[Rfam]
RNA: uup RNA
Organism: Anaerostipes rhamnosivorans
RNA sequence: GGCGAAACAGCUCUGUACAAUUCAGAACGAUGAAACAUUGUGCAGAGU
Numbered sequence: 001g002g003c004g005a006a007a008c009a010g011c012u013c014u015g016u017a018c019a020a021u022u023c024a025g026a027a028c029g030a031u032g033a034a035a036c037a038u039u040g041u042g043c044a045g046a047g048u
Stems, first nucleotide, its partner, number of pairs: 011047005017041003
Dot-bracket structure: ..........(((((.(((...................))).))))).